[Rfam]
RNA sequence: GGGUGCCUGAGACUUUCUGUUUUCAGGCUAACCGGGAAUCAGAAAGACGAAGGCCCCGACCGAUAUUUCUAUCAACCGAGGCCAACGAAUGAACCAAGCAAUUCAAAUGUUAGCCUCUUACCCGCCAUCCGGCAAGGAGAAAGGCUAUGAAG
Dot-bracket structure: (((.((((..(.(((((((.((.(..(.....)..))).))))))).)..)))))))(...((((....))))...)(((((..(((..((((........))))..)))..)))))...((...(............)...))........